Shown here is a 195-nucleotide sequence from Alphabaculovirus trini, a member of the family "Baculoviridae Nucleocapsid Assembly essential Element". The literature on the family includes a 2017 paper in J Virol by Huang et al., "The Autographa californica Multiple Nucleopolyhedrovirus ac83 Gene Contains a cis-Acting Element That Is Essential for Nucleocapsid Assembly". Lineage of the source: Viruses > Naldaviricetes > Baculoviridae > Alphabaculovirus > Alphabaculovirus trini. About the family: Internal cis-element within the ac83 gene.
RNA sequence: GAUUUUCUCGAAUCGAUAUCGGUCAAUAUACGACAAUUUGACGAAUGUCAUAGUAUUCUCGAUAAAAUUCACAUCAAAUAUACUACGAUUAACCGUAAAUAUACUACUCUUCAACCCGAAUAUACGUUCAAAAGUGUAAACAGCUCAAAAAAUAUCGAAAGAUAUGCGGAAAAUAUACCAAAUUCCAAGGACACU
Numbered sequence: 001g002a003u004u005u006u007c008u009c010g011a012a013u014c015g016a017u018a019u020c021g022g023u024c025a026a027u028a029u030a031c032g033a034c035a036a037u038u039u040g041a042c043g044a045a046u047g048u049c050a051u052a053g054u055a056u057u058c059u060c061g062a063u064a065a066a067a068u069u070c071a072c073a074u075c076a077a078a079u080a081u082a083c084u085a086c087g088a089u090u091a092a093c094c095g096u097a098a099a100u101a102u103a104c105u106a107c108u109c110u111u112c113a114a115c116c117c118g119a120a121u122a123u124a125c126g127u128u129c130a131a132a133a134g135u136g137u138a139a140a141c142a143g144c145u146c147a148a149a150a151a152a153u154a155u156c157g158a159a160a161g162a163u164a165u166g167c168g169g170a171a172a173a174u175a176u177a178c179c180a181a182a183u184u185c186c187a188a189g190g191a192c193a194c195u
Stems, first nucleotide, its partner, number of pairs: 008187001010185003015031001016029004037052001039050004136178002145169002152163002155160001